[Rfam]
RNA sequence: CUGCACGGUGCUAACCCCGGGCUUUUCGGAUUACUACCUUGAAGAAGGAAGCCCCAAUGCCUGUGCUAGAUCCACCAUGCCAUUCAGUGUUGCAGGCUAUGACAAAUCCUGCCAUUGGCUUGUGUCAAAGCAAUGGAUAUAUUC
Numbered sequence: 001c002u003g004c005a006c007g008g009u010g011c012u013a014a015c016c017c018c019g020g021g022c023u024u025u026u027c028g029g030a031u032u033a034c035u036a037c038c039u040u041g042a043a044g045a046a047g048g049a050a051g052c053c054c055c056a057a058u059g060c061c062u063g064u065g066c067u068a069g070a071u072c073c074a075c076c077a078u079g080c081c082a083u084u085c086a087g088u089g090u091u092g093c094a095g096g097c098u099a100u101g102a103c104a105a106a107u108c109c110u111g112c113c114a115u116u117g118g119c120u121u122g123u124g125u126c127a128a129a130g131c132a133a134u135g136g137a138u139a140u141a142u143u144c
Base pairs, nucleotide, nucleotide: 003066004065005064006063007062008061010060011059019054020053021052022051023050024048025047026045027044080136081135082134083133084132088127089126091124092123093122094121095120096119099115100114101113
RNA: small nucleolar RNA snoR134